[Rfam]
RNA: mir-7939 microRNA precursor family
RNA sequence: CAUGGGCCCUCAAGCCAUUCAUGUUAUCAUUCAAAUCAUGAAUGUUAUGAAGGUCCACGGC
Numbered sequence: 001c002a003u004g005g006g007c008c009c010u011c012a013a014g015c016c017a018u019u020c021a022u023g024u025u026a027u028c029a030u031u032c033a034a035a036u037c038a039u040g041a042a043u044g045u046u047a048u049g050a051a052g053g054u055c056c057a058c059g060g061c
Base pairs, nucleotide, nucleotide: 003057004056006054007053008052010050011049012048014046016044017043018042019041020040022038023037